[Rfam]
This 125-nucleotide RNA from Pongo abelii belongs to the Rfam family "Small Cajal body specific RNA 15". It is annotated as a small Cajal body RNA. About the family: scaRNAs are a specific class of small nuclear RNAs which localise to the Cajal bodies and guide the modification of RNA polymerase II transcribed spliceosomal RNAs U1, U2, U4, U5 and U12. ACA45 belongs to the H/ACA box class of guide RNAs as it has the predicted hairpin-hinge-hairpin-tail structure, the conserved H/ACA-box motifs and is found associated with GAR1. ACA45 is predicted to guide the pseudouridylation of residue U37 of the U2 spliceosomal snRNA. The literature on the family includes a 2002 paper in EMBO J by Darzacq et al., "Cajal body-specific small nuclear RNAs: a novel class of 2'-O-methylation and pseudouridylation guide RNAs". The family has 22 seed sequences and 635 matches in Rfam 15.1. The organism belongs to Pongo, within Eukaryota.
RNA sequence: CUGGAGAUGAAGAAAACAGUCCUUGAAGUCAAGCUGGCUCUGCUUUUACAAUCCUAAAUUAAAAGAUAGAUAGAACAGGUCUUGUUUGCAAAAUAAAUUCAAGAUCUACUUAUCUAUCAAUAGAA
Numbered sequence: 001c002u003g004g005a006g007a008u009g010a011a012g013a014a015a016a017c018a019g020u021c022c023u024u025g026a027a028g029u030c031a032a033g034c035u036g037g038c039u040c041u042g043c044u045u046u047u048a049c050a051a052u053c054c055u056a057a058a059u060u061a062a063a064a065g066a067u068a069g070a071u072a073g074a075a076c077a078g079g080u081c082u083u084g085u086u087u088g089c090a091a092a093a094u095a096a097a098u099u100c101a102a103g104a105u106c107u108a109c110u111u112a113u114c115u116a117u118c119a120a121u122a123g124a125a
Base pairs, nucleotide, nucleotide: 003054004053005052010047011046017042018039019038020037021036022033023032024031025030065118066117067116068115069114070113071112072111077107078106079105080104081103082102083101084100